Shown here is an 82-nucleotide sequence from Amphibacillus marinus, a member of the family "ZMP/ZTP riboswitch aptamer (pfl RNA motif)".
Nucleotides: 082
Stems, first nucleotide, its partner, number of pairs: 005050008015040002017070004024036004061075003
Number, partner (000 for none) and nucleotide at each position: 001000a002000u003000g004000u005050c006049g007048a008047u009046a010045c011044g012043u013000a014000a015040c016039u017070g018069g019068c020067g021000u022000a023000c024036a025035c026034g027033g028000a029000a030000c031000g032000a033027c034026c035025g036024u037000g038000a039016g040015g041000g042000a043012g044011c045010g046009u047008a048007u049006u050005g051000u052000a053000u054000a055000a056000c057000a058000u059000a060000a061075g062074c063073c064000g065000u066000u067020c068019g069018c070017c071000u072000g073063g074062g075061c076000a077000a078000g079000g080000u081000a082000a

The base pairs follow the family's consensus structure, which is taken from published work.